Rfam assigns this 111-nucleotide sequence from Hibiscus syriacus to the family "MIR394 microRNA precursor family". The base pairs follow the family's consensus structure, which was predicted with WAR. The literature on the family includes a 2004 paper in Mol Cell by Jones-Rhoades and Bartel, "Computational identification of plant microRNAs and their targets, including a stress-induced miRNA". The match comes from Rfam's covariance-model search (82 bits). Its family is annotated with miRNA-mediated post-transcriptional gene silencing and RISC complex in the Gene Ontology.
RNA sequence: CUUACAGAGUUCAUUGGCAUUCUGUCCACCUCGCAUCAUAGAAUAAGCCCUUUCUUUUUCCUUCUAUGAUCGUUCAUGGAGGUGGGCAUGCUGCCAACUGGGCUCUGUUGG
Numbered sequence: 001c002u003u004a005c006a007g008a009g010u011u012c013a014u015u016g017g018c019a020u021u022c023u024g025u026c027c028a029c030c031u032c033g034c035a036u037c038a039u040a041g042a043a044u045a046a047g048c049c050c051u052u053u054c055u056u057u058u059u060c061c062u063u064c065u066a067u068g069a070u071c072g073u074u075c076a077u078g079g080a081g082g083u084g085g086g087c088a089u090g091c092u093g094c095c096a097a098c099u100g101g102g103c104u105c106u107g108u109u110g111g
Stems, first nucleotide, its partner, number of pairs: 011101001014097006023088010034078001